[Rfam]
RNA sequence: CACACCAGCGCGAUUUACUGAUGUGUCACUAAAUCGCGUACUAUAGGGCGCGAUUUGUUGCCAUGUCAGCAAAUCGCGCUGACGUGG
Numbered sequence: 001c002a003c004a005c006c007a008g009c010g011c012g013a014u015u016u017a018c019u020g021a022u023g024u025g026u027c028a029c030u031a032a033a034u035c036g037c038g039u040a041c042u043a044u045a046g047g048g049c050g051c052g053a054u055u056u057g058u059u060g061c062c063a064u065g066u067c068a069g070c071a072a073a074u075c076g077c078g079c080u081g082a083c084g085u086g087g
Base pairs, nucleotide, nucleotide: 001086002085003084006081007080008079009078010077011076012075013074014073015072016071018069019068020067021066023064024063025062027060028059030057031056032055033054034053035052036051037050038049041046
Dot-bracket structure: (((..(((((((((((.((((.(((.((.(((((((((..(....)..))))))))).)).))).)))).)))))))))))..))).
MIR7486 microRNA precursor family: an 87-nucleotide RNA sequence from Gossypium lobatum. The source organism's lineage runs through Eukaryota, Streptophytina, Euphyllophyta, Malvales and Gossypium. The base pairs follow the family's consensus structure, which was predicted with RNAalifold. Rfam links the family to the GO terms miRNA-mediated post-transcriptional gene silencing and RISC complex.